[Rfam]
RNA: mir-290 microRNA precursor family
Organism: Tupaia belangeri
RNA sequence: GUGCCACUCAAACUGUGGGGGCACUUUUUCCGUCUAAAGAAAGUGCCGCCAUUUUUUGAGUGUUAC
Numbered sequence: 001g002u003g004c005c006a007c008u009c010a011a012a013c014u015g016u017g018g019g020g021g022c023a024c025u026u027u028u029u030c031c032g033u034c035u036a037a038a039g040a041a042a043g044u045g046c047c048g049c050c051a052u053u054u055u056u057u058g059a060g061u062g063u064u065a066c
Stems, first nucleotide, its partner, number of pairs: 005062008015052004020047009